[Rfam]
RNA sequence: UGAAUUCCCAAAGGGGAGUAGCGUCGGUGCAAACCGAAACAAAGUCGUCAUUCCGUGAGCAUUUAUCUCACCGGCUUUGUUGACAUGGAUAUGACAUGUUU
Numbered sequence: 001u002g003a004a005u006u007c008c009c010a011a012a013g014g015g016g017a018g019u020a021g022c023g024u025c026g027g028u029g030c031a032a033a034c035c036g037a038a039a040c041a042a043a044g045u046c047g048u049c050a051u052u053c054c055g056u057g058a059g060c061a062u063u064u065a066u067c068u069c070a071c072c073g074g075c076u077u078u079g080u081u082g083a084c085a086u087g088g089a090u091a092u093g094a095c096a097u098g099u100u101u
Stems, first nucleotide, its partner, number of pairs: 025036003038081010055071005082100006

This 101-nucleotide RNA sequence from Lactococcus garvieae belongs to the Rfam family "Manganese Mn2+ riboswitch aptamer (yybP-ykoY)". Gene Ontology term of the family: manganese ion binding. The source organism's lineage runs through Bacteria, Bacillota, Bacilli, Lactococcus and Lactococcus garvieae. The base pairs follow the family's consensus structure. It scores 46 bits against the family's covariance model.